[Rfam]
RNA: Streptomyces RNA 5676
Organism: Streptomyces sp. CC53
RNA sequence: GGAUGAGAGAAGAACCCCGCUCGCAGGAGACUGCGGACGGCACCAGGCAGGGGCCUCCCCAGCCCCGUCCUGGGCGUGCCUCAGCGCACACCGCCGGCGCUUCCCGCUCCGGCACUCCUCACCGAUCGGA
Numbered sequence: 001g002g003a004u005g006a007g008a009g010a011a012g013a014a015c016c017c018c019g020c021u022c023g024c025a026g027g028a029g030a031c032u033g034c035g036g037a038c039g040g041c042a043c044c045a046g047g048c049a050g051g052g053g054c055c056u057c058c059c060c061a062g063c064c065c066c067g068u069c070c071u072g073g074g075c076g077u078g079c080c081u082c083a084g085c086g087c088a089c090a091c092c093g094c095c096g097g098c099g100c101u102u103c104c105c106g107c108u109c110c111g112g113c114a115c116u117c118c119u120c121a122c123c124g125a126u127c128g129g130a
Stems, first nucleotide, its partner, number of pairs: 004121004009117002017040003021036006043073005050066005076089004093113005099107002122129002